RNA: Small nucleolar RNA R12
RNA sequence: GUUGGGAUGAUGAAAAAAAACAAAUCAGUCGGAUUCGCAUUGAUUUUCAUUAACGUGAUAAAACAACCACUUCUGACUAAC
Numbered sequence: 001g002u003u004g005g006g007a008u009g010a011u012g013a014a015a016a017a018a019a020a021c022a023a024a025u026c027a028g029u030c031g032g033a034u035u036c037g038c039a040u041u042g043a044u045u046u047u048c049a050u051u052a053a054c055g056u057g058a059u060a061a062a063a064c065a066a067c068c069a070c071u072u073c074u075g076a077c078u079a080a081c
Stems, first nucleotide, its partner, number of pairs: 001081005